[Rfam]
Shown here is a 108-nucleotide sequence from Pelagibius litoralis, a member of the family "Guanidine-I riboswitch aptamer".
RNA sequence: ACGCAGGGCGUCUAGGGUUCCGACCGUCGAAAGCGACGGUGUCUGGUCCGAGAGAUGCACUCCGGGAACAUCAACCCGGAGCCACGGCGGGCCAAAAUCCCGGGAGAU
Numbered sequence: 001a002c003g004c005a006g007g008g009c010g011u012c013u014a015g016g017g018u019u020c021c022g023a024c025c026g027u028c029g030a031a032a033g034c035g036a037c038g039g040u041g042u043c044u045g046g047u048c049c050g051a052g053a054g055a056u057g058c059a060c061u062c063c064g065g066g067a068a069c070a071u072c073a074a075c076c077c078g079g080a081g082c083c084a085c086g087g088c089g090g091g092c093c094a095a096a097a098u099c100c101c102g103g104g105a106g107a108u
Base pairs, nucleotide, nucleotide: 008058009057010056011055012054015049016048020046021045022043023040024039025038026037027036028035060081061080062079063078064077065076066075083103085106089101090100091099
A reference for the family is Nelson et al. (2017), "Metabolism of Free Guanidine in Bacteria Is Regulated by a Widespread Riboswitch Class", Mol Cell.